Overview: Rfam assigns this 146-nucleotide RNA from Mycetohabitans endofungorum to the family "Burkholderia sRNA 7". Pairs were carried over by alignment from the consensus structure, which was predicted with R-scape. The source organism's lineage runs through Bacteria, Betaproteobacteria, Burkholderiales, Burkholderiaceae and Mycetohabitans. On this family, see Ghosh et al., Microbiology 2017: "Identification of novel small RNAs in Burkholderia cenocepacia KC-01 expressed under iron limitation and oxidative stress conditions". From the family's description: Did not show any change in expression in iron-depletion and hydrogen peroxide (oxidative stress) treatment. Constitutively expressed. By type it is a small RNA.
RNA sequence: GUAUUCUUCGCGGAUGAUUCGCGCUCAAGCCCAUCUCCGACGUCGCCGUUCGCUGCUUCCAUAGGGAAGCCGCUGGCUCGUUACGGACUGUCGCGCUGAAUGGCCGCGCACCGGAUUACCAAGCCACGGACUUCCGUGGCUUUUGU
Numbered sequence: 001g002u003a004u005u006c007u008u009c010g011c012g013g014a015u016g017a018u019u020c021g022c023g024c025u026c027a028a029g030c031c032c033a034u035c036u037c038c039g040a041c042g043u044c045g046c047c048g049u050u051c052g053c054u055g056c057u058u059c060c061a062u063a064g065g066g067a068a069g070c071c072g073c074u075g076g077c078u079c080g081u082u083a084c085g086g087a088c089u090g091u092c093g094c095g096c097u098g099a100a101u102g103g104c105c106g107c108g109c110a111c112c113g114g115a116u117u118a119c120c121a122a123g124c125c126a127c128g129g130a131c132u133u134c135c136g137u138g139g140c141u142u143u144u145g146u
Base pairs, nucleotide, nucleotide: 005115006114007113009095010094011093012092013091018090030086031085038080039079040078042077043076044075045073046072048070049069053065121142122141123140124139125138126137127136128135129134